[Rfam]
RNA sequence: UUUGCAAGUUUGAGGCCAUAGGAGAAGUGCUCAUAGUACAGCCCUGUCAGAUUUCAACAAAUGUGCAAAUUCUGCU
Numbered sequence: 001u002u003u004g005c006a007a008g009u010u011u012g013a014g015g016c017c018a019u020a021g022g023a024g025a026a027g028u029g030c031u032c033a034u035a036g037u038a039c040a041g042c043c044c045u046g047u048c049a050g051a052u053u054u055c056a057a058c059a060a061a062u063g064u065g066c067a068a069a070u071u072c073u074g075c076u
Stems, first nucleotide, its partner, number of pairs: 012044001014043003020076002023073004027039003048065002051062004
This 76-nucleotide RNA sequence from Alligator mississippiensis belongs to the Rfam family "Mammalian CPEB3 ribozyme".
From the family's description: The mammalian CPEB3 ribozyme is a self cleaving RNA located in the second intron of the CPEB3 gene which belongs to a family of genes regulating messenger RNA polyadenylation.